[Rfam]
Nucleotides: 171
Stems, first nucleotide, its partner, number of pairs: 028047006049064006092124007104115004126164006133156006
Number, partner (000 for none) and nucleotide at each position: 001000a002000u003000u004000g005000u006000c007000u008000g009000a010000a011000u012000a013000a014000a015000c016000g017000u018000u019000a020000a021000a022000a023000g024000u025000u026000c027000u028047u029046a030045u031044c032043g033042g034000c035000u036000u037000a038000a039000u040000c041000u042033c043032c044031g045030a046029u047028a048000c049064g050063u051062a052061c053060a054059c055000u056000a057000u058000u059054g060053u061052g062051u063050a064049c065000a066000a067000c068000g069000a070000g071000a072000u073000u074000a075000a076000c077000g078000u079000a080000u081000u082000u083000u084000u085000g086000g087000a088000a089000a090000u091000g092124g093123u094122u095121c096120g097119g098118u099000u100000a101000g102000c103000a104115g105114a106113a107112g108000c109000u110000u111000g112107c113106u114105u115104c116000u117000c118098g119097c120096c121095g122094g123093a124092c125000a126164g127163c128162g129161u130160c131159g132000g133156c134155c135154c136153g137152g138151c139000a140000u141000u142000g143000c144000a145000c146000u147000u148000a149000c150000u151138g152137c153136u154135g155134g156133g157000a158000u159131c160130g161129g162128c163127g164126c165000a166000c167000a168000c169000c170000c171000c
U2 spliceosomal RNA: a 171-nucleotide RNA from Mesorhabditis spiculigera. By type it is a spliceosomal small nuclear RNA. The family has 208 seed sequences and 71,512 matches in Rfam 15.1. The base pairs follow the family's consensus structure, which is taken from published work. The match comes from Rfam's covariance-model search (82 bits). U2 is a small nuclear RNA (snRNA) component of the spliceosome (involved in pre-mRNA splicing). Complementary binding between U2 snRNA (in an area lying towards the 5' end but 3' to hairpin I) and the branchpoint sequence (BPS) of the intron results the bulging out of an unpaired adenosine, on the BPS, which initiates a nucleophilic attack at the intronic 5' splice site, thus starting the first of two transesterification reactions that mediate splicing.